RNA: Bacterial large subunit ribosomal RNA, nucleotides 1256 to 1637
Nucleotides: 382
Base pairs, nucleotide, nucleotide: 006024007023008022009021010020011019025380026379027378028377033360034359035358036357039340040339044068045067046066047065048064049063053061054060075336076335077334078333080111081110085106086105087104089102091100092099093098115132116131117130118129119128135332136331138329139328140327141326142325143324144323145322146317147316151312152311153310154309155308159299160298161297162296165292166291167290170286171285172284173283174282175196176195177194178193179192180191197256198255201251202250203249208244209243210242213236214235215234216233217232218231219230221229222228260277261276262275263274264273265272266271346355347354362374363373364372
Number, partner (000 for none) and nucleotide at each position: 001000g002000a003000u004000a005000a006024u007023g008022g009021g010020g011019g012000u013000g014000a015000a016000a017000a018000a019011c020010c021009c022008c023007c024006a025380c026379g027378c028377c029000g030000a031000a032000a033360a034359u035358c036357c037000a038000a039340g040339g041000u042000u043000u044068c045067c046066u047065g048064c049063g050000c051000a052000a053061c054060g055000c056000u057000a058000a059000u060054c061053g062000a063049c064048g065047c066046a067045g068044g069000g070000u071000u072000a073000g074000u075336c076335g077334g078333u079000a080111c081110c082000u083000a084000a085106g086105g087104c088000g089102a090000g091100g092099c093098c094000g095000a096000a097000a098093g099092g100091c101000g102089u103000a104087g105086u106085c107000g108000a109000u110081g111080g112000a113000a114000a115132g116131c117130a118129g119128g120000u121000u122000a123000a124000u125000a126000u127000u128119c129118c130117u131116g132115c133000a134000c135332c136331a137000g138329u139328u140327g141326u142325a143324a144323c145322u146317g147316c148000g149000a150000u151312g152311g153310g154309g155308u156000g157000a158000c159299g160298g161297a162296g163000a164000a165292g166291g167290c168000u169000a170286g171285g172284u173283c174282a175196g176195c177194u178193g179192u180191c181000u182000g183000u184000u185000g186000g187000a188000a189000u190000a191180g192179g193178c194177a195176g196175u197256u198255u199000a200000a201251g202250c203249g204000a205000g206000u207000a208244g209243g210242g211000a212000g213236g214235g215234u216233u217232c218231u219230u220000a221229g222228g223000c224000a225000a226000a227000u228222c229221c230219g231218g232217g233216a234215a235214c236213c237000u238000a239000u240000a241000u242210u243209c244208u245000g246000a247000g248000a249203c250202g251201u252000g253000a254000u255198g256197a257000c258000g259000a260277g261276u262275u263274g264273c265272u266271c267000u268000u269000c270000g271266g272265a273264g274263c275262g276261a277260c278000g279000a280000a281000g282174u283173g284172a285171u286170u287000g288000a289000u290167g291166c292165c293000a294000u295000g296162c297161u298160u299159c300000c301000a302000a303000g304000a305000a306000a307000a308155a309154c310153c311152u312151c313000u314000a315000a316147g317146c318000u319000u320000c321000a322145g323144g324143u325142u326141a327140c328139a329138a330000g331136u332135g333078g334077c335076c336075g337000u338000a339040c340039c341000c342000c343000a344000a345000a346355c347354c348000g349000a350000c351000a352000c353000a354347g355346g356000u357036g358035g359034a360033u361000g362374g363373g364372a365000u366000g367000a368000g369000a370000a371000u372364u373363c374362u375000a376000a377028g378027g379026c380025g381000c382000u